[Rfam]
RNA sequence: UUCUGGGCUCGCAUGAGGGAUAGUAGUGGAAAUCCUUUUUGUUUUUUCUUUAAAAACAAAAAGAUUGAAACAAAUAGCCCGACCCGGA
Number, nucleotide and partner (000 for none) at each position: 001u000002u000003c000004u000005g000006g000007g000008c000009u000010c000011g000012c000013a000014u000015g000016a000017g080018g079019g078020a000021u076022a075023g000024u000025a000026g071027u070028g000029g000030a000031a066032a065033u064034c063035c000036u000037u061038u060039u059040u058041g057042u056043u055044u054045u053046u052047u000048c000049u000050u000051u000052a046053a045054a044055a043056a042057c041058a040059a039060a038061a037062a000063g034064a033065u032066u031067g000068a000069a000070a027071c026072a000073a000074a000075u022076a021077g000078c019079c018080c017081g000082a000083c000084c000085c000086g000087g000088a000
RNA: Flavo-1 RNA
Organism: Flavobacterium hercynium